[Rfam]
This 73-nucleotide RNA sequence from Sporomusa ovata belongs to the Rfam family "tRNA".
RNA sequence: GCGCCUGUAGCUCAGCGGAUAGAGCAACCGCCUUCUAAGCGGUUGGUCGUAGGUUCAAUUCCUACCAGGCGUG
Number, nucleotide and partner (000 for none) at each position: 001g072002c071003g070004c069005c068006u067007g066008u000009a000010g025011c024012u023013c022014a000015g000016c000017g000018g000019a000020u000021a000022g013023a012024g011025c010026a000027a043028c042029c041030g040031c039032c000033u000034u000035c000036u000037a000038a000039g031040c030041g029042g028043u027044u000045g000046g000047u000048c000049g065050u064051a063052g062053g061054u000055u000056c000057a000058a000059u000060u000061c053062c052063u051064a050065c049066c007067a006068g005069g004070c003071g002072u001073g000

The source organism's lineage runs through Bacteria, Bacillota, Negativicutes, Selenomonadales and Sporomusa.
The match comes from Rfam's covariance-model search (72 bits).
About the family: Transfer RNA (tRNA) molecules are approximately 80 nucleotides in length. Their secondary structure includes four short double-helical elements and three loops (D, anti-codon, and T loops). Further hydrogen bonds mediate the characteristic L-shaped molecular structure. tRNAs have two regions of fundamental functional importance: the anti-codon, which is responsible for specific mRNA codon recognition, and the 3' end, to which the tRNAs corresponding amino acid is attached (by aminoacyl-tRNA synthetases). tRNAs cope with the degeneracy of the genetic code in two manners: having more than one tRNA (with a specific anti-codon) for a particular amino acid; and 'wobble' base-pairing, i.e. permitting non-standard base-pairing at the 3rd anti-codon position.